[Rfam]
RNA sequence: CGAUGAGGUAGAGGCGCGGACGAAAAGAAGUAUGUACAGAUAGGGUGACACCGAUAACCUGUACAAAAAGGGUUCUCCGCCGAAAUGUCCGGACAGGUCAUCUUCCGGGCAUUGGGCCUGUAUUAAAUAAAUACAGGACUGCCGCAGAAUCAACUGCGGAGAGCUACCUGUUUU
Numbered sequence: 001c002g003a004u005g006a007g008g009u010a011g012a013g014g015c016g017c018g019g020a021c022g023a024a025a026a027g028a029a030g031u032a033u034g035u036a037c038a039g040a041u042a043g044g045g046u047g048a049c050a051c052c053g054a055u056a057a058c059c060u061g062u063a064c065a066a067a068a069a070g071g072g073u074u075c076u077c078c079g080c081c082g083a084a085a086u087g088u089c090c091g092g093a094c095a096g097g098u099c100a101u102c103u104u105c106c107g108g109g110c111a112u113u114g115g116g117c118c119u120g121u122a123u124u125a126a127a128u129a130a131a132u133a134c135a136g137g138a139c140u141g142c143c144g145c146a147g148a149a150u151c152a153a154c155u156g157c158g159g160a161g162a163g164c165u166a167c168c169u170g171u172u173u174u
Base pairs, nucleotide, nucleotide: 006169007168008167009166010165011164016080017079018078019077020076022074023073033065034064035063036062037061038060039059084113085112086111087110088109089108090107091106092105093104114140115139117137118136119135120134121133122132123131124130142159143158144157145156146155147154

Shown here is a 174-nucleotide RNA sequence from Sinobaca qinghaiensis, a member of the family "Lysine riboswitch aptamer". Taxonomically the source falls in Sinobaca (Bacteria, Bacillota, Bacilli, Sporolactobacillaceae). From the family's description: Riboswitches are metabolite binding domains within certain messenger RNAs that serve as precision sensors for their corresponding targets.